Overview: Rfam assigns this 114-nucleotide RNA sequence from Bacillus sp. B1-b2 to the family "SAM riboswitch aptamer (S box leader)". A search with the family's covariance model found it, with a score of 84 bits. Taxonomically the source falls in Bacillus (Bacteria, Bacillati, Bacilli, Caryophanales).

[Rfam]
RNA sequence: CUCUUAUCCAGAGAAACCGAGGGAUCAGGCCCUAUGACGUUUCGGCAACGGAUUUUUACAAAUACCGUGCCAACUCCUGCAAAUGUUUAUUUUUGAACAUUUGGAAGAUAAGAU
Number, nucleotide and partner (000 for none) at each position: 001c000002u113003c112004u111005u110006a109007u108008c107009c000010a000011g000012a000013g043014a042015a041016a040017c039018c000019g000020a000021g032022g031023g030024a000025u000026c079027a078028g077029g076030c023031c022032c021033u000034a000035u000036g000037a000038c000039g017040u016041u015042u014043c013044g071045g070046c069047a068048a000049c067050g066051g063052a000053u061054u060055u000056u000057u000058a000059c000060a054061a053062a000063u051064a000065c000066c050067g049068u047069g046070c045071c044072a000073a000074c000075u106076c029077c028078u027079g026080c103081a102082a101083a100084u099085g098086u097087u096088u095089a000090u000091u000092u000093u000094u000095g088096a087097a086098c085099a084100u083101u082102u081103g080104g000105a000106a075107g008108a007109u006110a005111a004112g003113a002114u000